A member of the RNA family "mir-357 microRNA precursor family" from Caenorhabditis brenneri, 71 nucleotides long. It scores 91 bits against the family's covariance model. On this family, see Ohler et al., RNA 2004: "Patterns of flanking sequence conservation and a characteristic upstream motif for microRNA gene identification". Gene Ontology terms of the family: RISC complex and miRNA-mediated post-transcriptional gene silencing.
RNA sequence: GCGAAUCCCUGUAAUACUGUGCAUAUACAUGUCAUGUAACUAAUGUAAAUGCCAGUCGUUGCAGGAAUUCG
Numbered sequence: 001g002c003g004a005a006u007c008c009c010u011g012u013a014a015u016a017c018u019g020u021g022c023a024u025a026u027a028c029a030u031g032u033c034a035u036g037u038a039a040c041u042a043a044u045g046u047a048a049a050u051g052c053c054a055g056u057c058g059u060u061g062c063a064g065g066a067a068u069u070c071g
Base pairs, nucleotide, nucleotide: 008065009064010063012061013060014059015058016056017055018054019053021052022051023050024049026047027046028045029044030043